Nucleotides: 136
Base pairs, nucleotide, nucleotide: 002067003065004064005063008060009059010058011057013055016053020049029048030047031046032045033044034043035042036041077129078128080126081125082124083123085120086119090118091117092116099108100107101106
Number, partner (000 for none) and nucleotide at each position: 001000a002067u003065g004064c005063u006000u007000u008060g009059c010058u011057u012000a013055u014000c015000u016053a017000u018000u019000u020049a021000u022000u023000u024000a025000u026000u027000g028000g029048g030047u031046c032045a033044c034043a035042c036041a037000u038000u039000g040000u041036u042035g043034u044033g045032u046031g047030g048029u049020u050000c051000u052000u053016u054000u055013a056000c057011a058010a059009g060008u061000g062000a063005a064004g065003c066000u067002a068000a069000a070000a071000a072000g073000a074000a075000u076000u077129g078128u079000u080126c081125c082124u083123c084000u085120c086119g087000c088000u089000a090118u091117c092116c093000u094000u095000u096000g097000c098000a099108c100107c101106a102000u103000u104000u105000a106101u107100g108099g109000u110000g111000u112000a113000u114000u115000u116092g117091g118090a119086c120085g121000u122000u123083g124082g125081g126080g127000u128078a129077c130000u131000a132000c133000a134000u135000u136000g